[Rfam]
RNA sequence: CGCGAGGCUAGAGUCACGUCUGGACACUGACCCGUUGUCCUGCUGUGCUAGAGUGCUCGCAGAGGAAAGCGUCUCUGCUUAUUCGUUGGCUGUAGUCUGAUGUGACCCAGUCAAUCACCAGCUCAGACACAUCU
Numbered sequence: 001c002g003c004g005a006g007g008c009u010a011g012a013g014u015c016a017c018g019u020c021u022g023g024a025c026a027c028u029g030a031c032c033c034g035u036u037g038u039c040c041u042g043c044u045g046u047g048c049u050a051g052a053g054u055g056c057u058c059g060c061a062g063a064g065g066a067a068a069g070c071g072u073c074u075c076u077g078c079u080u081a082u083u084c085g086u087u088g089g090c091u092g093u094a095g096u097c098u099g100a101u102g103u104g105a106c107c108c109a110g111u112c113a114a115u116c117a118c119c120a121g122c123u124c125a126g127a128c129a130c131a132u133c134u
Stems, first nucleotide, its partner, number of pairs: 002060005007054003012049002015047004020042001023039004073126002077122003085115005091109002095106003

Rfam assigns this 134-nucleotide sequence from Betta splendens to the family "Small nucleolar RNA SNORA3/SNORA45 family".
Rfam links the family to the GO terms RNA processing and nucleolus.
The literature on the family includes a 2005 paper in Nucleic Acids Res by Gu et al., "A novel experimental approach for systematic identification of box H/ACA snoRNAs from eukaryotes".
The members of this family belong to the H/ACA class of snoRNAs which are thought to guide the sites of modification of uridines to pseudouridines.